[Rfam]
RNA sequence: UCUGUGGAGAAUUAUAUAAAACUAAAGUAAUAGAAAUAUGAAAUAGGAUUCUUUGAAACAGAAA
Numbered sequence: 001u002c003u004g005u006g007g008a009g010a011a012u013u014a015u016a017u018a019a020a021a022c023u024a025a026a027g028u029a030a031u032a033g034a035a036a037u038a039u040g041a042a043a044u045a046g047g048a049u050u051c052u053u054u055g056a057a058a059c060a061g062a063a064a
Stems, first nucleotide, its partner, number of pairs: 001062005009051005022046003030039003
Dot-bracket structure: (((((...(((((........(((.....(((....)))....))))))))......)))))..
RAGATH-18 RNA: a 64-nucleotide sequence. About the family: Actinobacteria, Firmicutes, Fusobacteria, Thermotogae (1 example). The sequence is in the family's curated seed alignment.